The family of this 108-nucleotide RNA from Allobosea sp. LC85 is "EcpR1". Rfam's curators write: Perviously named SmelC291, SmrC10, or Sra33. According to its overproduction phenotype it was renamed Elongated Cell Phenotype RNA1. Induced by stress,EcpR1 negatively regulates cell cycle master regulatory genes dnaA and gcrA at post-transcriptional level by base pairing between its strongly conserved GC-rich loop and the target mRNAs. It's regulation is hfq-independent but requires RNase E to regulate dnaA. Rfam classes the family as a small RNA.
RNA sequence: AUGCCCCUCGGGAACUCAGGUCCGCCGCAUCUCCUGGGACUCCGAUGGGCUGGCCGGUCGGCCGCGGGACAUCUGGCCUCAUCAGAACCGCAGCCGGCCGGUCACCAC
Number, nucleotide and partner (000 for none) at each position: 001a000002u000003g050004c049005c048006c047007c000008u045009c044010g043011g000012g000013a000014a000015c038016u037017c036018a035019g034020g033021u000022c000023c000024g000025c000026c000027g000028c000029a000030u000031c000032u000033c020034c019035u018036g017037g016038g015039a000040c000041u000042c000043c010044g009045a008046u000047g006048g005049g004050c003051u000052g103053g102054c101055c100056g099057g098058u097059c096060g095061g094062c093063c000064g000065c000066g000067g000068g000069a000070c000071a000072u000073c000074u000075g000076g000077c000078c000079u000080c000081a000082u000083c000084a000085g000086a000087a000088c000089c000090g000091c000092a000093g062094c061095c060096g059097g058098c057099c056100g055101g054102u053103c052104a000105c000106c000107a000108c000

Lineage of the source: Bacteria > Pseudomonadati > Alphaproteobacteria > Alloboseaceae > Allobosea. The family's consensus secondary structure was predicted with WAR.